[Rfam]
RNA sequence: UAACAGUGAUGACAGAAGAGUUAUUUGCUAGCUGAGAGCUGCAUGCUGACAGCAGCUUACCACCAAGAUCUCUGAGUUA
Numbered sequence: 001u002a003a004c005a006g007u008g009a010u011g012a013c014a015g016a017a018g019a020g021u022u023a024u025u026u027g028c029u030a031g032c033u034g035a036g037a038g039c040u041g042c043a044u045g046c047u048g049a050c051a052g053c054a055g056c057u058u059a060c061c062a063c064c065a066a067g068a069u070c071u072c073u074g075a076g077u078u079a
Stems, first nucleotide, its partner, number of pairs: 001079004
Small nucleolar RNA SNORD24: a 79-nucleotide sequence from Diaphorina citri. The family's RNA type in Rfam is C/D-box small nucleolar RNA. Lineage of the source: Eukaryota > Altocrustacea > Neoptera > Eumetabola > Diaphorina. Gene Ontology terms of the family: nucleolus and RNA processing.